[Rfam]
RNA sequence: CGAAGUAGACCAGAUGGCCGCCGCCCGCAAGGGGGGAGGAAAGUCCGGGCUCCAUAGGGCAUGGCGCUGGAUAACAUCCAGCGGGGGUGACCCCAGGGAAAGUGCCACAGAGAGAAGUCCGCCUGCCGGAGCUUUGCGAAGGCAGGUAAGGGUGAAAGGGUGAGGUAAGAGCUCACCGGGUCCGGCGGUGACGUCGGAUGCCAGGUAAACCCCGCCAGGAGCAAGACCAAAUAGGGAAGCGUUAAGGACGGCCCGUCCGUGCUUCCGGGUUGGUUGCUUGAGGCCGUCGGUAACGACGGUCCUAGAUGAAUGGCCAUCGCCCGCGGUCGGGAAACUUGCAGCGGGAACAGGACCCGGCUUAUGGGCUGCUUCGGCCA
Numbered sequence: 001c002g003a004a005g006u007a008g009a010c011c012a013g014a015u016g017g018c019c020g021c022c023g024c025c026c027g028c029a030a031g032g033g034g035g036g037a038g039g040a041a042a043g044u045c046c047g048g049g050c051u052c053c054a055u056a057g058g059g060c061a062u063g064g065c066g067c068u069g070g071a072u073a074a075c076a077u078c079c080a081g082c083g084g085g086g087g088u089g090a091c092c093c094c095a096g097g098g099a100a101a102g103u104g105c106c107a108c109a110g111a112g113a114g115a116a117g118u119c120c121g122c123c124u125g126c127c128g129g130a131g132c133u134u135u136g137c138g139a140a141g142g143c144a145g146g147u148a149a150g151g152g153u154g155a156a157a158g159g160g161u162g163a164g165g166u167a168a169g170a171g172c173u174c175a176c177c178g179g180g181u182c183c184g185g186c187g188g189u190g191a192c193g194u195c196g197g198a199u200g201c202c203a204g205g206u207a208a209a210c211c212c213c214g215c216c217a218g219g220a221g222c223a224a225g226a227c228c229a230a231a232u233a234g235g236g237a238a239g240c241g242u243u244a245a246g247g248a249c250g251g252c253c254c255g256u257c258c259g260u261g262c263u264u265c266c267g268g269g270u271u272g273g274u275u276g277c278u279u280g281a282g283g284c285c286g287u288c289g290g291u292a293a294c295g296a297c298g299g300u301c302c303u304a305g306a307u308g309a310a311u312g313g314c315c316a317u318c319g320c321c322c323g324c325g326g327u328c329g330g331g332a333a334a335c336u337u338g339c340a341g342c343g344g345g346a347a348c349a350g351g352a353c354c355c356g357g358c359u360u361a362u363g364g365g366c367u368g369c370u371u372c373g374g375c376c377a
Base pairs, nucleotide, nucleotide: 001373002372003371004370005369006368007367008366010365011364012362013318014317015316016315017314018313019312021036022035024033025032026031041360042359043358045357046356047355048354049353050221051220052219053218057254058253059252060251062217063216064215065214066213067081068080069079070078071077082096083094084093085092086091097212098211102210103209104206105205106204119151120150121147122146123145124144125143126142127141159177160176161175162174163173164172179201180199181198182197183196184195185194186193187192225275226274227273228272235266236265237264238263239262240261246258247257248256249255282301283300284299285298286297287296288295289294
Overview: Bacterial RNase P class A: a 377-nucleotide RNA sequence from Geotalea uraniireducens. The family's RNA type in Rfam is ribozyme.